[Rfam]
RNA sequence: AGCAAGCAGUGAUGAUGAUGACAUAAUGUCAACUUUCCUGAAAACACCUGAUGCUUUUAAGUCACUACCUCAUCUGAGCUUGCC
Numbered sequence: 001a002g003c004a005a006g007c008a009g010u011g012a013u014g015a016u017g018a019u020g021a022c023a024u025a026a027u028g029u030c031a032a033c034u035u036u037c038c039u040g041a042a043a044a045c046a047c048c049u050g051a052u053g054c055u056u057u058u059a060a061g062u063c064a065c066u067a068c069c070u071c072a073u074c075u076g077a078g079c080u081u082g083c084c
Stems, first nucleotide, its partner, number of pairs: 002083006

Rfam assigns this 84-nucleotide sequence from Pleuronectes platessa to the family "Small nucleolar RNA SNORD11B". The base pairs follow the family's consensus structure, which was predicted with WAR. Its Rfam clan is "SNORD11 clan". NCBI's taxonomy places the organism under Eukaryota, Bilateria, Craniata, Vertebrata, Pleuronectes.